A member of the RNA family "Small nucleolar RNA SNORD35" from Takifugu flavidus, 83 nucleotides long.
Lineage of the source: Eukaryota > Chordata > Actinopteri > Neopterygii > Takifugu.
[Rfam]
RNA sequence: UGCAAAUGAUGUCUUUCUCACGAUGGUCUUCCAAACCUCAGGGUUCUGACGACACUGCCUAAUGGCAAUACUGAUGCAGUCAG
Numbered sequence: 001u002g003c004a005a006a007u008g009a010u011g012u013c014u015u016u017c018u019c020a021c022g023a024u025g026g027u028c029u030u031c032c033a034a035a036c037c038u039c040a041g042g043g044u045u046c047u048g049a050c051g052a053c054a055c056u057g058c059c060u061a062a063u064g065g066c067a068a069u070a071c072u073g074a075u076g077c078a079g080u081c082a083g
Stems, first nucleotide, its partner, number of pairs: 001078004